[Rfam]
RNA sequence: CAGCAGGAGUCAGUCCUGCCGGGGUAAAAGUCAGAAGCCCCGUAGCCUGGAUAGCAGGGUGGCGGGAAACCAGGACUCUGAAGCCUAUCGACUGGUGUCCCCGAGGGGGAUGCGUGAGUCAUCGGGCCGUAAUGAAG
Numbered sequence: 001c002a003g004c005a006g007g008a009g010u011c012a013g014u015c016c017u018g019c020c021g022g023g024g025u026a027a028a029a030g031u032c033a034g035a036a037g038c039c040c041c042g043u044a045g046c047c048u049g050g051a052u053a054g055c056a057g058g059g060u061g062g063c064g065g066g067a068a069a070c071c072a073g074g075a076c077u078c079u080g081a082a083g084c085c086u087a088u089c090g091a092c093u094g095g096u097g098u099c100c101c102c103g104a105g106g107g108g109g110a111u112g113c114g115u116g117a118g119u120c121a122u123c124g125g126g127c128c129g130u131a132a133u134g135a136a137g
Stems, first nucleotide, its partner, number of pairs: 020042005050089005055080006064071002096112006114130003